[Rfam]
Rfam assigns this 60-nucleotide RNA sequence from Candidatus Burkholderia verschuerenii to the family "Betaproteobacteria toxic small RNA". From the family's description: Overexpression in amino aid rich medium attenuates growth, suggesting role in repressing amino acid intake and metabolism. A search with the family's covariance model found it, with a score of 55 bits.
Nucleotides: 060
Base pairs, nucleotide, nucleotide: 008029009028010027011026012025013024014023015022033053034052035051036050037049038048039047040046
Number, partner (000 for none) and nucleotide at each position: 001000c002000g003000u004000c005000u006000c007000c008029u009028c010027c011026a012025u013024g014023u015022c016000u017000c018000c019000g020000c021000u022015g023014a024013u025012g026011u027010g028009g029008a030000u031000u032000g033053a034052c035051c036050c037049g038048c039047u040046c041000c042000c043000c044000a045000c046040g047039a048038g049037c050036g051035g052034g053033u054000u055000u056000u057000u058000u059000u060000g